The record is a 139-nucleotide sequence from Pseudomonas flexibilis, which matches "Pseudomonas rpsL leader" in Rfam. A reference for the family is Naville and Gautheret (2010), "Premature terminator analysis sheds light on a hidden world of bacterial transcriptional attenuation", Genome Biol. The base pairs follow the family's consensus structure, which is taken from published work. Rfam links the family to the GO term regulation of gene expression. The organism belongs to Pseudomonas, within Bacteria. It scores 94 bits against the family's covariance model. By type it is a cis-regulatory leader.

[Rfam]
RNA sequence: CGCCCGGGCUUAGCCUUGACGGGGCGUUGAGCUCUCUUUAAACUCACGCACCCCUAAAUUUGGCAGGGCGUGUUGCUCUGCCAUUUUGCUUUCUUCGGAAAGCGAUUGUGUCGAAAGACAAAACAGUGGAGCUAGUAGA
Numbered sequence: 001c002g003c004c005c006g007g008g009c010u011u012a013g014c015c016u017u018g019a020c021g022g023g024g025c026g027u028u029g030a031g032c033u034c035u036c037u038u039u040a041a042a043c044u045c046a047c048g049c050a051c052c053c054c055u056a057a058a059u060u061u062g063g064c065a066g067g068g069c070g071u072g073u074u075g076c077u078c079u080g081c082c083a084u085u086u087u088g089c090u091u092u093c094u095u096c097g098g099a100a101a102g103c104g105a106u107u108g109u110g111u112c113g114a115a116a117g118a119c120a121a122a123a124c125a126g127u128g129g130a131g132c133u134a135g136u137a138g139a
Stems, first nucleotide, its partner, number of pairs: 004018001006016004022053003026049002031044001035040001061083009104136001106134001108132002110119003